[Rfam]
RNA sequence: UCGGGUCUUACGCAGGCACCCGGUCCCAAAAGACGAUUUCGUCUCAAGCGCUGC
Numbered sequence: 001u002c003g004g005g006u007c008u009u010a011c012g013c014a015g016g017c018a019c020c021c022g023g024u025c026c027c028a029a030a031a032g033a034c035g036a037u038u039u040c041g042u043c044u045c046a047a048g049c050g051c052u053g054c
Stems, first nucleotide, its partner, number of pairs: 001023006012054004029044001032043004
The record is a 54-nucleotide sequence, which matches "chrB-b RNA" in Rfam. The sequence is in the family's curated seed alignment. By type it is a cis-regulatory element.